This 132-nucleotide sequence from Pantoea vagans belongs to the Rfam family "Salmonella enterica Typhi npcRNA 44".
It is annotated as a non-coding RNA gene.
Pairs were carried over by alignment from the consensus structure, which was predicted with CMfinder.
The literature on the family includes a 2010 paper in Nucleic Acids Res by Chinni et al., "Experimental identification and characterization of 97 novel npcRNA candidates in Salmonella enterica serovar Typhi".
RNA sequence: CUUUAACAAUCCGGAACAAGCUGAAAAUUGAAACGACACGUCGUUUUCAUUCUCCGUAAUAAGAAUGAAAUUUACGAUGUGUUCGAGUCUCUCAAAUGCUUGCAGCUUGCAUGCGUUGUAAAACGCCUGUGG
Numbered sequence: 001c002u003u004u005a006a007c008a009a010u011c012c013g014g015a016a017c018a019a020g021c022u023g024a025a026a027a028u029u030g031a032a033a034c035g036a037c038a039c040g041u042c043g044u045u046u047u048c049a050u051u052c053u054c055c056g057u058a059a060u061a062a063g064a065a066u067g068a069a070a071u072u073u074a075c076g077a078u079g080u081g082u083u084c085g086a087g088u089c090u091c092u093c094a095a096a097u098g099c100u101u102g103c104a105g106c107u108u109g110c111a112u113g114c115g116u117u118g119u120a121a122a123a124c125g126c127c128u129g130u131g132g
Stems, first nucleotide, its partner, number of pairs: 020103002023101002027097003034085003038082004108131003113126003